[Rfam]
Shown here is a 50-nucleotide sequence from Cereal yellow dwarf virus, a member of the family "Exoribonuclease-resistant RNA (xrRNA) plant-infecting virus (class 3)". The source organism's lineage runs through Viruses, Riboviria, Orthornavirae, Sobelivirales and Polerovirus. Its family is annotated with viral RNA genome replication in the Gene Ontology. The literature on the family includes a 2024 paper in bioRxiv [Preprint] by Gezelle et al., "The pseudoknot structure of a viral RNA reveals a conserved mechanism for programmed exoribonuclease resistance". The family's RNA type in Rfam is cis-regulatory element. From the family's description: Exoribonuclease-resistant RNA (xrRNA) plant-infecting virus (class 3) is a ncRNA that was reported in Plant viruses.
RNA sequence: AACUAGCCGGACAAACGUAAGUUGCAAGUGCCGGGAGUCCAGUCUUACAC
Numbered sequence: 001a002a003c004u005a006g007c008c009g010g011a012c013a014a015a016c017g018u019a020a021g022u023u024g025c026a027a028g029u030g031c032c033g034g035g036a037g038u039c040c041a042g043u044c045u046u047a048c049a050c
Base pairs, nucleotide, nucleotide: 001038007034008033010032011029012028017048018047019046020045021044